[Rfam]
RNA: Small Cajal body-specific RNA 7
RNA sequence: UGGAUGAAGCAUUUAUAAAUUUUGUAUUUGAUUUUUGUGUUCAUGUGUAAAAUACUACUUGCUGUAAUAAACAUUAAGAAUAGUGUUCUGGUGGGAUGGGACAGGUGAAUGAGUGAGUGUAUGUGUGAUUCAGAUAGGCUGGGGGAAAAAGGGGGGCACUGAAGAUUGAGUAUCUCUGCUGAUUUUGGAGUGCAUCUGAGGCCAGUCGUGGAAUCUAGGUGCUUUCACUUUUUGGCUGAUGAUUGGAGCCUCGCAGCAGCUCCUGCAAUCUCUAACAACUGCAUUUUUGCAAUGUUCCUGCAAUCUGAUCCAA
Numbered sequence: 001u002g003g004a005u006g007a008a009g010c011a012u013u014u015a016u017a018a019a020u021u022u023u024g025u026a027u028u029u030g031a032u033u034u035u036u037g038u039g040u041u042c043a044u045g046u047g048u049a050a051a052a053u054a055c056u057a058c059u060u061g062c063u064g065u066a067a068u069a070a071a072c073a074u075u076a077a078g079a080a081u082a083g084u085g086u087u088c089u090g091g092u093g094g095g096a097u098g099g100g101a102c103a104g105g106u107g108a109a110u111g112a113g114u115g116a117g118u119g120u121a122u123g124u125g126u127g128a129u130u131c132a133g134a135u136a137g138g139c140u141g142g143g144g145g146a147a148a149a150a151g152g153g154g155g156g157c158a159c160u161g162a163a164g165a166u167u168g169a170g171u172a173u174c175u176c177u178g179c180u181g182a183u184u185u186u187g188g189a190g191u192g193c194a195u196c197u198g199a200g201g202c203c204a205g206u207c208g209u210g211g212a213a214u215c216u217a218g219g220u221g222c223u224u225u226c227a228c229u230u231u232u233u234g235g236c237u238g239a240u241g242a243u244u245g246g247a248g249c250c251u252c253g254c255a256g257c258a259g260c261u262c263c264u265g266c267a268a269u270c271u272c273u274a275a276c277a278a279c280u281g282c283a284u285u286u287u288u289g290c291a292a293u294g295u296u297c298c299u300g301c302a303a304u305c306u307g308a309u310c311c312a313a
Base pairs, nucleotide, nucleotide: 001312002311003310004309204232205231208228209227210226211225212224213223215221